RNA sequence: UUCUUAUCAAGAGCGGCGGAGGGACUGGCCCUAUGAUGCCCGGCAACCUGGAUAUAGUGAAAUAUAUUCAAGGUGCUAAUUCCAACAGGAAUAUACCUGAAAGAUGAGAG
Numbered sequence: 001u002u003c004u005u006a007u008c009a010a011g012a013g014c015g016g017c018g019g020a021g022g023g024a025c026u027g028g029c030c031c032u033a034u035g036a037u038g039c040c041c042g043g044c045a046a047c048c049u050g051g052a053u054a055u056a057g058u059g060a061a062a063u064a065u066a067u068u069c070a071a072g073g074u075g076c077u078a079a080u081u082c083c084a085a086c087a088g089g090a091a092u093a094u095a096c097c098u099g100a101a102a103g104a105u106g107a108g109a110g
Base pairs, nucleotide, nucleotide: 001110002109003108004107005106006105007104008103013041015040016039017038021031022030023029026084027083028082042077043076044075045074047073048072050069051068052067053066054065055064081102086099087098088097089096
RNA: SAM riboswitch aptamer (S box leader)
Organism: Clostridium ljungdahlii